[Rfam]
MIR394 microRNA precursor family: a 105-nucleotide RNA sequence from Theobroma cacao.
RNA sequence: CUUACAGAGUUUAUUGGCAUUCUGUCCACCUCCCAUCACAGAAAAUCCCUUUCCUUUCCCCUCUCUUUCAUGGAGGUGGGCAUACUGCCAACUGGGCUCUGUUGG
Dot-bracket structure: ..........(..((((((...(((((((((((......................................)))))))))))...))))))...)..........
The source organism's lineage runs through Eukaryota, Viridiplantae, Magnoliopsida, eudicotyledons and Theobroma. Gene Ontology terms of the family: miRNA-mediated post-transcriptional gene silencing and RISC complex. Rfam 15.1 lists 724 matches to the family in 216 species.